[Rfam]
RNA: Purine riboswitch aptamer
Organism: Neomoorella humiferrea
RNA sequence: UCGAACUAUAAUUAUUAACUUCGUAUAUCCUCAGCAAUACGGACUGAGGGUCUCUACCAGGCAACCGCAAAUUGCCCGGCUACGAAGGCGAUUCUUCGUUGC
Numbered sequence: 001u002c003g004a005a006c007u008a009u010a011a012u013u014a015u016u017a018a019c020u021u022c023g024u025a026u027a028u029c030c031u032c033a034g035c036a037a038u039a040c041g042g043a044c045u046g047a048g049g050g051u052c053u054c055u056a057c058c059a060g061g062c063a064a065c066c067g068c069a070a071a072u073u074g075c076c077c078g079g080c081u082a083c084g085a086a087g088g089c090g091a092u093u094c095u096u097c098g099u100u101g102c
Stems, first nucleotide, its partner, number of pairs: 019087007029049006058078001060076005